[Rfam]
RNA sequence: UCUAUCGUGAGAUGGCUUCUGAAAGAAGUUGGCAGCAAACAUUUGGCUUGACGGACAAAAACUUCAUACAAGGUAUUUAAUCGUGGACAAGGUUACCAAACAGACCAAAGCCUCAUAGCUAUUCAGAACGGUUGGUGCAAAUAAAAUAAGUAUAAGAUGAAAAGACAAGAUC
Numbered sequence: 001u002c003u004a005u006c007g008u009g010a011g012a013u014g015g016c017u018u019c020u021g022a023a024a025g026a027a028g029u030u031g032g033c034a035g036c037a038a039a040c041a042u043u044u045g046g047c048u049u050g051a052c053g054g055a056c057a058a059a060a061a062c063u064u065c066a067u068a069c070a071a072g073g074u075a076u077u078u079a080a081u082c083g084u085g086g087a088c089a090a091g092g093u094u095a096c097c098a099a100a101c102a103g104a105c106c107a108a109a110g111c112c113u114c115a116u117a118g119c120u121a122u123u124c125a126g127a128a129c130g131g132u133u134g135g136u137g138c139a140a141a142u143a144a145a146a147u148a149a150g151u152a153u154a155a156g157a158u159g160a161a162a163a164g165a166c167a168a169g170a171u172c
Base pairs, nucleotide, nucleotide: 002015003014004013005012006011028172030170036164040159041158042157043156044155046151047150048149049148050147063145064144066142067141073138074137075136077134079133080132081131082130083129085113086112088110091106092105093104094103